This 109-nucleotide RNA from Miscanthus lutarioriparius belongs to the Rfam family "MIR5565 microRNA precursor family". The family has 7 seed sequences and 3,346 matches in Rfam 15.1. Rfam links the family to the GO terms RISC complex and miRNA-mediated post-transcriptional gene silencing. The source organism's lineage runs through Eukaryota, Viridiplantae, Petrosaviidae, Andropogonodae and Miscanthus.
RNA sequence: GCACUCGUAUUCACCUCAACCCACUUGUGUUAAAGUGGAUUGGGGUGAAACUUAAAUUAUUUUUCAUCCCAAUCCGCUCCAACACACAUGGAUUGAGGUGGAUAUGAGU
Numbered sequence: 001g002c003a004c005u006c007g008u009a010u011u012c013a014c015c016u017c018a019a020c021c022c023a024c025u026u027g028u029g030u031u032a033a034a035g036u037g038g039a040u041u042g043g044g045g046u047g048a049a050a051c052u053u054a055a056a057u058u059a060u061u062u063u064u065c066a067u068c069c070c071a072a073u074c075c076g077c078u079c080c081a082a083c084a085c086a087c088a089u090g091g092a093u094u095g096a097g098g099u100g101g102a103u104a105u106g107a108g109u
Stems, first nucleotide, its partner, number of pairs: 004108011016096004021091003026086006035077009045067003